[Rfam]
RNA sequence: UCCUCGCUCAAAGAAUCGCAUUCAAAGCUCACACACAGAGAACCACUUCGGUCCUCUCUCUUCACUCCCUCGGGGGUGAAGAACCUGCUUUGGGAGAAAGUCCCCGGACACCCUGGCCCUCUCUUUGUUUACAAAGAAGGGACUCUCAGGCAAUGCGGAAACGCGCCGCCAUAAAAGCAAUUUGAGAGCGGCUUACUGCCCUAUUCCCUCCCGGUUCCCGAGUUCUGUGCCCGACGCCCCUUCGUGGGGUGGACAUAAUGGUGGUGUAGCUUGGUCUCGGAGAGGGGUUUUUCAUUGGGUUGCCAUUCGUCGUGUUUGGAUAGUCAUGCGAUUGCUCGGUUUGGUUUUUUCCCUUCGCGGGGGGAAAUCUGGGCUGGGUAACUCAAUGGGGCUCAUUCUUGAGGCGAGG
Numbered sequence: 001u002c003c004u005c006g007c008u009c010a011a012a013g014a015a016u017c018g019c020a021u022u023c024a025a026a027g028c029u030c031a032c033a034c035a036c037a038g039a040g041a042a043c044c045a046c047u048u049c050g051g052u053c054c055u056c057u058c059u060c061u062u063c064a065c066u067c068c069c070u071c072g073g074g075g076g077u078g079a080a081g082a083a084c085c086u087g088c089u090u091u092g093g094g095a096g097a098a099a100g101u102c103c104c105c106g107g108a109c110a111c112c113c114u115g116g117c118c119c120u121c122u123c124u125u126u127g128u129u130u131a132c133a134a135a136g137a138a139g140g141g142a143c144u145c146u147c148a149g150g151c152a153a154u155g156c157g158g159a160a161a162c163g164c165g166c167c168g169c170c171a172u173a174a175a176a177g178c179a180a181u182u183u184g185a186g187a188g189c190g191g192c193u194u195a196c197u198g199c200c201c202u203a204u205u206c207c208c209u210c211c212c213g214g215u216u217c218c219c220g221a222g223u224u225c226u227g228u229g230c231c232c233g234a235c236g237c238c239c240c241u242u243c244g245u246g247g248g249g250u251g252g253a254c255a256u257a258a259u260g261g262u263g264g265u266g267u268a269g270c271u272u273g274g275u276c277u278c279g280g281a282g283a284g285g286g287g288u289u290u291u292u293c294a295u296u297g298g299g300u301u302g303c304c305a306u307u308c309g310u311c312g313u314g315u316u317u318g319g320a321u322a323g324u325c326a327u328g329c330g331a332u333u334g335c336u337c338g339g340u341u342u343g344g345u346u347u348u349u350u351c352c353c354u355u356c357g358c359g360g361g362g363g364g365a366a367a368u369c370u371g372g373g374c375u376g377g378g379u380a381a382c383u384c385a386a387u388g389g390g391g392c393u394c395a396u397u398c399u400u401g402a403g404g405c406g407a408g409g
Stems, first nucleotide, its partner, number of pairs: 002409006008402004014333006022094001023092006038056003042052003099393002102391004115121002122137006139304002146299002149296002158293004166287002169284001270280002273277001335378010

Record summary
This 409-nucleotide RNA sequence from Aspergillus ustus belongs to the Rfam family "RNase MRP". Lineage of the source: Eukaryota > saccharomyceta > leotiomyceta > Aspergillus > Aspergillus subgen. Nidulantes. The literature on the family includes a 2005 paper in Biochem Biophys Res Commun by Walker and Avis, "Secondary structure probing of the human RNase MRP RNA reveals the potential for MRP RNA subsets". Rfam classes the family as a ribozyme.